[Rfam]
Nucleotides: 108
Base pairs, nucleotide, nucleotide: 007095008094009093010092011058012057013056014055016053017030018029019028020027021026037052038051039050040049041048064089065088066087067086070083071082072081073080
Number, partner (000 for none) and nucleotide at each position: 001000c002000c003000u004000g005000c006000a007095u008094c009093c010092c011058c012057g013056g014055g015000g016053c017030a018029c019028c020027g021026c022000a023000c024000g025000a026021g027020c028019g029018g030017u031000u032000g033000a034000g035000a036000g037052g038051u039050g040049g041048c042000u043000g044000a045000c046000c047000g048041g049040c050039c051038g052037c053016g054000a055014c056013c057012c058011g059000c060000u061000g062000a063000a064089c065088c066087u067086g068000a069000u070083c071082c072081g073080g074000c075000u076000u077000a078000c079000a080073c081072c082071g083070g084000c085000g086067u087066a088065g089064g090000g091000a092010g093009g094008g095007a096000g097000c098000g099000g100000c101000g102000c103000c104000g105000c106000a107000c108000c